[Rfam]
Source information: The record is a 78-nucleotide RNA from Spirodela intermedia, which matches "Small nucleolar RNA R12" in Rfam. Pairs were carried over by alignment from the consensus structure, which was predicted with PFOLD. The match comes from Rfam's covariance-model search (74 bits). About the family: snoR12 is a C/D box small nucleolar RNA, which acts as a methylation guide for 25S ribosomal RNA in plants. snoR12 has been alternatively named snoZ44 in Arabidopsis and snoZ131 in rice.
RNA sequence: ACGUGGAUGACGAAAAAAAUCAAUCGGAUUCCCAAUGAUCUGUUGAAAUGAUCAGUAAACCAGCUACUUCUGACACUU
Numbered sequence: 001a002c003g004u005g006g007a008u009g010a011c012g013a014a015a016a017a018a019a020u021c022a023a024u025c026g027g028a029u030u031c032c033c034a035a036u037g038a039u040c041u042g043u044u045g046a047a048a049u050g051a052u053c054a055g056u057a058a059a060c061c062a063g064c065u066a067c068u069u070c071u072g073a074c075a076c077u078u
Stems, first nucleotide, its partner, number of pairs: 001078001003076003